[Rfam]
RNA sequence: GAUACCCUCUGAGGCAAUGAACCACCUGGCGCAUCCGGGCGCUUAUGUCAGGUGAGGAGCCAGUGGCGCGACCGACAGAACCUACG
Numbered sequence: 001g002a003u004a005c006c007c008u009c010u011g012a013g014g015c016a017a018u019g020a021a022c023c024a025c026c027u028g029g030c031g032c033a034u035c036c037g038g039g040c041g042c043u044u045a046u047g048u049c050a051g052g053u054g055a056g057g058a059g060c061c062a063g064u065g066g067c068g069c070g071a072c073c074g075a076c077a078g079a080a081c082c083u084a085c086g
Stems, first nucleotide, its partner, number of pairs: 003084002008079004013061003023054007037073002039069005
c-di-GMP-II-GAG riboswitch aptamer: an 86-nucleotide RNA from Deinococcus arboris. Taxonomically the source falls in Deinococcus (Bacteria, Deinococci, Deinococcales, Deinococcaceae). Gene Ontology terms of the family: cyclic-di-GMP binding and regulation of gene expression. On this family, see Weinberg et al., Proc Natl Acad Sci U S A 2017: "Bioinformatic analysis of riboswitch structures uncovers variant classes with altered ligand specificity". The match comes from Rfam's covariance-model search (54 bits).